[Rfam]
RNA sequence: GAUAGGGCGGGUGAUGGAACCCACCCGGGGCGACGCUCCGAACUGCGACCGCUGAUGGCUCCUACGACGAC
Numbered sequence: 001g002a003u004a005g006g007g008c009g010g011g012u013g014a015u016g017g018a019a020c021c022c023a024c025c026c027g028g029g030g031c032g033a034c035g036c037u038c039c040g041a042a043c044u045g046c047g048a049c050c051g052c053u054g055a056u057g058g059c060u061c062c063u064a065c066g067a068c069g070a071c
Stems, first nucleotide, its partner, number of pairs: 010025004016062003020058002045052002
The family of this 71-nucleotide RNA sequence from Nostocoides japonicum is "Fluoride riboswitch aptamer (crcB RNA motif)".
It scores 38 bits against the family's covariance model.
Rfam 15.1 lists 2,293 matches to the family in 1,982 species.
The base pairs follow the family's consensus structure, which is taken from published work.